[Rfam]
RNA sequence: AAUAAACCUCGGUAGGUGAGGUUACUACAAGGAUACGGGUUGUUGCCGUAAAAGAAUGGAAACAUUCUUAACUGGUUAGCAGGUUUUGCCGAACAAAGAAGGCAUAAUCUAAUACAGCUUCAUUGCCUUGCAGAGCCAAAACUUGAACGAGAAAGUGUUGUU
Numbered sequence: 001a002a003u004a005a006a007c008c009u010c011g012g013u014a015g016g017u018g019a020g021g022u023u024a025c026u027a028c029a030a031g032g033a034u035a036c037g038g039g040u041u042g043u044u045g046c047c048g049u050a051a052a053a054g055a056a057u058g059g060a061a062a063c064a065u066u067c068u069u070a071a072c073u074g075g076u077u078a079g080c081a082g083g084u085u086u087u088g089c090c091g092a093a094c095a096a097a098g099a100a101g102g103c104a105u106a107a108u109c110u111a112a113u114a115c116a117g118c119u120u121c122a123u124u125g126c127c128u129u130g131c132a133g134a135g136c137c138a139a140a141a142c143u144u145g146a147a148c149g150a151g152a153a154a155g156u157g158u159u160g161u162u
Stems, first nucleotide, its partner, number of pairs: 005158001008155002011148001013100001015143003020137003025133002028130005039118005046074001048072002055066004082109004088103003
RNA: M-box riboswitch aptamer (ykoK leader)